[Rfam]
Background
A member of the RNA family "c-di-AMP riboswitch aptamer (ydaO/yuaA leader)" from Paractinoplanes tereljensis, 140 nucleotides long. NCBI's taxonomy places the organism under Bacteria, Bacillati, Micromonosporales, Micromonosporaceae, Paractinoplanes.
Nucleotides: 140
Stems, first nucleotide, its partner, number of pairs: 001124002007039003040120006050059002060105003068079004082099004
Number, partner (000 for none) and nucleotide at each position: 001124g002123c003000g004000u005000g006000u007039u008038c009037u010000c011000c012000c013000c014000c015000g016000a017000a018000c019000a020000u021000g022000u023000g024000c025000a026000g027000g028000c029000c030000c031000c032000g033000c034000g035000a036000c037009a038008g039007a040120a041119c042118c043117g044116g045115g046000g047000a048000a049000c050059c051058g052000c053000g054000u055000u056000u057000c058051u059050g060105g061104g062103g063000u064000g065000a066000a067000u068079c069078c070077g071076c072000g073000c074000a075000a076071g077070c078069g079068g080000u081000a082099g083098g084097g085096c086000g087000a088000u089000c090000u091000u092000c093000c094000g095000a096085g097084c098083c099082c100000g101000a102000a103062u104061c105060c106000g107000u108000c109000a110000g111000c112000u113000a114000a115045c116044c117043c118042g119041g120040u121000a122000g123002g124001c125000g126000g127000c128000a129000g130000c131000g132000g133000a134000a135000g136000a137000a138000a139000g140000g